[Rfam]
RNA sequence: CGCCGAUGCCCUCCUUGGGCGUUUCCUCCCUUGACUUGGACCGCUUGUGGCGACACAGGCGGUUUUUUCUUUUGGGC
Numbered sequence: 001c002g003c004c005g006a007u008g009c010c011c012u013c014c015u016u017g018g019g020c021g022u023u024u025c026c027u028c029c030c031u032u033g034a035c036u037u038g039g040a041c042c043g044c045u046u047g048u049g050g051c052g053a054c055a056c057a058g059g060c061g062g063u064u065u066u067u068u069c070u071u072u073u074g075g076g077c
Base pairs, nucleotide, nucleotide: 008020009019010018011017041062042061043060044059045058046057047056048055049054
A member of the RNA family "Makes More Granules Regulator RNA (mmgR)" from Beijerinckia indica, 77 nucleotides long. A search with the family's covariance model found it, with a score of 64 bits. NCBI's taxonomy places the organism under Bacteria, Hyphomicrobiales, Beijerinckiaceae, Beijerinckia indica, Beijerinckia indica subsp. indica.